Shown here is a 75-nucleotide RNA sequence from Streptomyces griseus, a member of the family "ASpks TB sRNA". Pairs were carried over by alignment from the consensus structure, which is taken from published work. The sequence is in the family's curated seed alignment.
[Rfam]
RNA sequence: CUUCACCGAACCGAGCCAGAGCGGCCGGCCCUCCUCACGCUCCUGCCCGUACGUGGCCAGGAGCGCCUGCGCCUC
Numbered sequence: 001c002u003u004c005a006c007c008g009a010a011c012c013g014a015g016c017c018a019g020a021g022c023g024g025c026c027g028g029c030c031c032u033c034c035u036c037a038c039g040c041u042c043c044u045g046c047c048c049g050u051a052c053g054u055g056g057c058c059a060g061g062a063g064c065g066c067c068u069g070c071g072c073c074u075c
Stems, first nucleotide, its partner, number of pairs: 015025003031071001033069001038065002043060003047056003